Shown here is a 34-nucleotide sequence from Patiriisocius marinus, a member of the family "S16-Flavobacteria ribosomal protein leader". It scores 40 bits against the family's covariance model. Taxonomically the source falls in Patiriisocius (Bacteria, Pseudomonadati, Flavobacteriia, Flavobacteriales).
[Rfam]
Nucleotides: 034
Stems, first nucleotide, its partner, number of pairs: 001034005010024005
Number, partner (000 for none) and nucleotide at each position: 001034a002033u003032u004031a005030a006000a007000a008000c009000c010024g011023a012022a013021g014020u015000c016000g017000c018000g019000u020014a021013c022012u023011u024010c025000a026000a027000a028000a029000a030005u031004u032003a033002a034001u